[Rfam]
RNA sequence: UUUGUACCAGUGGGGUCCCUCGGCCUGGCCUGCGCCCUUUUGCAAUCUGGGACCCCUUGGGGGAUGUCGGAGAGCUGGUUUCAGCCUGAUCCCGCAGGCCAGGCCGAGGGACCCCACUGGUGCACA
Numbered sequence: 001u002u003u004g005u006a007c008c009a010g011u012g013g014g015g016u017c018c019c020u021c022g023g024c025c026u027g028g029c030c031u032g033c034g035c036c037c038u039u040u041u042g043c044a045a046u047c048u049g050g051g052a053c054c055c056c057u058u059g060g061g062g063g064a065u066g067u068c069g070g071a072g073a074g075c076u077g078g079u080u081u082c083a084g085c086c087u088g089a090u091c092c093c094g095c096a097g098g099c100c101a102g103g104c105c106g107a108g109g110g111a112c113c114c115c116a117c118u119g120g121u122g123c124a125c126a
Stems, first nucleotide, its partner, number of pairs: 003124002006121001008119003012115014027100008